[Rfam]
The record is a 185-nucleotide RNA sequence from Parageobacillus caldoxylosilyticus, which matches "6S / SsrS RNA" in Rfam. The organism belongs to Parageobacillus caldoxylosilyticus, within Bacteria. From the family's description: E. coli 6S RNA was the first non coding RNA to be sequenced, but its function was unknown until recently. It consists of 184 nucleotides that fold into an extended hairpin structure with a large single-stranded internal bulge. Pairs were carried over by alignment from the consensus structure, which is taken from published work. A search with the family's covariance model found it, with a score of 114 bits.
RNA sequence: AUAGUCCUGAUGUGUUCGUCGUAUAACCUAUUGUUUUGACCGAACAAUAAGUUAUACGGGAGCCCGGGGUUUCCAAGCGGCGUACAUGCCUCCCCGUACGAGGAAGUGCAAACCUUGGGACAGGGCACCCACCUGCUUGGGAGCGGGUUCAAAACGAAGGCAUCGACGGCACGAUUGGGACUGAC
Numbered sequence: 001a002u003a004g005u006c007c008u009g010a011u012g013u014g015u016u017c018g019u020c021g022u023a024u025a026a027c028c029u030a031u032u033g034u035u036u037u038g039a040c041c042g043a044a045c046a047a048u049a050a051g052u053u054a055u056a057c058g059g060g061a062g063c064c065c066g067g068g069g070u071u072u073c074c075a076a077g078c079g080g081c082g083u084a085c086a087u088g089c090c091u092c093c094c095c096g097u098a099c100g101a102g103g104a105a106g107u108g109c110a111a112a113c114c115u116u117g118g119g120a121c122a123g124g125g126c127a128c129c130c131a132c133c134u135g136c137u138u139g140g141g142a143g144c145g146g147g148u149u150c151a152a153a154a155c156g157a158a159g160g161c162a163u164c165g166a167c168g169g170c171a172c173g174a175u176u177g178g179g180a181c182u183g184a185c
Base pairs, nucleotide, nucleotide: 002183003182004181005180006179007178008177009176010175011174012172013171014170015169017168018167019166032156033155034154035153037151038150039149040147041146058130059129060128062126063125064124065123067121072119073118074117075116076115077114084107085106089103090102091101092100